The family of this 64-nucleotide sequence is "RAGATH-18 RNA". Rfam describes the family as follows. Actinobacteria, Firmicutes, Fusobacteria, Thermotogae (1 example). Rfam's curators put it in the seed alignment.
RNA sequence: CCUUUGGAGUGCUAUAUCAAACAAUAUUAGGUUUAUACCGAGGUUGGGCACGAAGAAUAAGGAA
Numbered sequence: 001c002c003u004u005u006g007g008a009g010u011g012c013u014a015u016a017u018c019a020a021a022c023a024a025u026a027u028u029a030g031g032u033u034u035a036u037a038c039c040g041a042g043g044u045u046g047g048g049c050a051c052g053a054a055g056a057a058u059a060a061g062g063a064a
Stems, first nucleotide, its partner, number of pairs: 001062004009051005022046003030039003